[Rfam]
Rfam assigns this 141-nucleotide RNA from Pongo abelii to the family "U4 spliceosomal RNA". The family has 177 seed sequences and 32,178 matches in Rfam 15.1. For this family Rfam cites "Structures of the human pre-catalytic spliceosome and its precursor spliceosome" (Zhan et al., Cell Res, 2018). By type it is a spliceosomal small nuclear RNA. Lineage of the source: Eukaryota > Metazoa > Simiiformes > Catarrhini > Pongo.
RNA sequence: AGCUUUGUGCAGUGGCACUAUUGUAGCUACUGAGGUUCCUCCAGGGUGCGAUUAUUGCUAAUUAAAAACAUUUCCCAAUAUCCUGGUGUGAUAACUUGCAUUAGAAUGGGCAUUGGCAAUUUUUGACAGUCUCUACAGAGA
Number, nucleotide and partner (000 for none) at each position: 001a000002g000003c000004u000005u000006u000007g000008u000009g000010c000011a000012g000013u000014g000015g000016c000017a000018c000019u000020a052021u051022u050023g049024u048025a000026g047027c046028u045029a000030c000031u000032g000033a000034g042035g041036u000037u000038c000039c000040u000041c035042c034043a000044g000045g028046g027047u026048g024049c023050g022051a021052u020053u000054a000055u000056u000057g000058c000059u000060a000061a000062u000063u000064a000065a000066a000067a000068a000069c000070a000071u000072u000073u000074c000075c000076c000077a000078a000079u000080a000081u000082c000083c000084u000085g117086g000087u115088g113089u112090g111091a000092u109093a000094a107095c000096u105097u104098g000099c000100a000101u000102u000103a000104g097105a096106a000107u094108g000109g092110g000111c090112a089113u088114u000115g087116g000117c085118a000119a000120u000121u000122u000123u000124u000125g000126a000127c000128a000129g000130u141131c140132u139133c138134u000135a000136c000137a000138g133139a132140g131141a130